Small nucleolar RNA SNORD18: a 75-nucleotide RNA from Sorghum bicolor.

[Rfam]
RNA sequence: GGGAUGUGAUGAAGAAUUAUUGGUCCGUGUUUCUGAUCAUCAGUGAUGAGCAAAACACUCCAUAAUUCUGAUCCC
Numbered sequence: 001g002g003g004a005u006g007u008g009a010u011g012a013a014g015a016a017u018u019a020u021u022g023g024u025c026c027g028u029g030u031u032u033c034u035g036a037u038c039a040u041c042a043g044u045g046a047u048g049a050g051c052a053a054a055a056c057a058c059u060c061c062a063u064a065a066u067u068c069u070g071a072u073c074c075c
Stems, first nucleotide, its partner, number of pairs: 001075004
Dot-bracket structure: ((((...................................................................))))
Record summary:
Gene Ontology terms of the family: RNA processing and nucleolus. It is annotated as a C/D-box small nucleolar RNA. A reference for the family is Prislei et al. (1993), "Two different snoRNAs are encoded in introns of amphibian and human L1 ribosomal protein genes", Nucleic Acids Res.